[Rfam]
RNA: Streptomyces RNA 6106
RNA sequence: ACGCCGCCCGUGCGGCGCGCAUGGCCUCAACGGGCCGGCAGGGGCAGGGGUGGUGCCGUGUCGGCGCAGCACCACCCCUGUCGG
Numbered sequence: 001a002c003g004c005c006g007c008c009c010g011u012g013c014g015g016c017g018c019g020c021a022u023g024g025c026c027u028c029a030a031c032g033g034g035c036c037g038g039c040a041g042g043g044g045c046a047g048g049g050g051u052g053g054u055g056c057c058g059u060g061u062c063g064g065c066g067c068a069g070c071a072c073c074a075c076c077c078c079u080g081u082c083g084g
Stems, first nucleotide, its partner, number of pairs: 002017006020041001022038001024036001025034003044081013058067003